mir-181 microRNA precursor family: an 81-nucleotide RNA from Chanos chanos. A search with the family's covariance model found it, with a score of 65 bits. The literature on the family includes a 2001 paper in Cell by Ambros, "microRNAs: tiny regulators with great potential". Rfam links the family to the GO terms miRNA-mediated post-transcriptional gene silencing and RISC complex.

RNA sequence: GAGACACAGUGAACAUUCAACGCUGUCGGUGAGUUUAUGAAUCAGGGAAACCAUCGGCUGUUGAGUGUACCCUGCCUCUUG
Number, nucleotide and partner (000 for none) at each position: 001g000002a080003g079004a077005c000006a000007c074008a073009g000010u000011g000012a000013a000014c067015a066016u065017u064018c063019a062020a061021c060022g059023c000024u000025g058026u057027c056028g055029g054030u053031g052032a000033g051034u050035u049036u048037a000038u000039g000040a000041a000042u000043c000044a000045g000046g000047g000048a036049a035050a034051c033052c031053a030054u029055c028056g027057g026058c025059u022060g021061u020062u019063g018064a017065g016066u015067g014068u000069a000070c000071c000072c000073u008074g007075c000076c000077u004078c000079u003080u002081g000